[Rfam]
RNA sequence: GGGCUCAUAUGAAAUUUUUUAAUAUCUUAGCGGAUUUCGGUGAGACCUUAGUGCCAAUGAUCUGAUGUUACACACACUGAAGCCC
Numbered sequence: 001g002g003g004c005u006c007a008u009a010u011g012a013a014a015u016u017u018u019u020u021a022a023u024a025u026c027u028u029a030g031c032g033g034a035u036u037u038c039g040g041u042g043a044g045a046c047c048u049u050a051g052u053g054c055c056a057a058u059g060a061u062c063u064g065a066u067g068u069u070a071c072a073c074a075c076a077c078u079g080a081a082g083c084c085c
Base pairs, nucleotide, nucleotide: 001085002084003083004082005081